[Rfam]
RNA sequence: CCGGUGGCUUCCGCCACCGGCUACCUUUCGCCGCCCUUCCGGGGCU
Numbered sequence: 001c002c003g004g005u006g007g008c009u010u011c012c013g014c015c016a017c018c019g020g021c022u023a024c025c026u027u028u029c030g031c032c033g034c035c036c037u038u039c040c041g042g043g044g045c046u
Stems, first nucleotide, its partner, number of pairs: 001020008033045005
Dot-bracket structure: ((((((((....))))))))............(((((...))))).

About this RNA: Acido-Lenti-1 RNA: a 46-nucleotide sequence from Luteolibacter ambystomatis. By type it is a small RNA. The organism belongs to Luteolibacter, within Bacteria.